RNA: c-di-GMP-I riboswitch aptamer
Organism: Thermovenabulum gondwanense
RNA sequence: UGUCGAAAAGGGCAAACCUGUCGAAAGGCAGGGACGCAAAGCUAUGGGCCUAAGGCAUAUCAUGCUAUGGCUGCCAGGCUGCCGAA
Number, nucleotide and partner (000 for none) at each position: 001u000002g000003u000004c000005g000006a000007a000008a000009a000010g000011g000012g037013c036014a000015a000016a000017c032018c031019u030020g029021u028022c027023g000024a000025a000026a000027g022028g021029c020030a019031g018032g017033g000034a000035c000036g013037c012038a000039a000040a080041g079042c078043u077044a000045u076046g075047g074048g071049c070050c069051u000052a000053a000054g000055g065056c064057a063058u062059a000060u000061c000062a058063u057064g056065c055066u000067a000068u000069g050070g049071c048072u000073g000074c047075c046076a045077g043078g042079c041080u040081g000082c000083c000084g000085a000086a000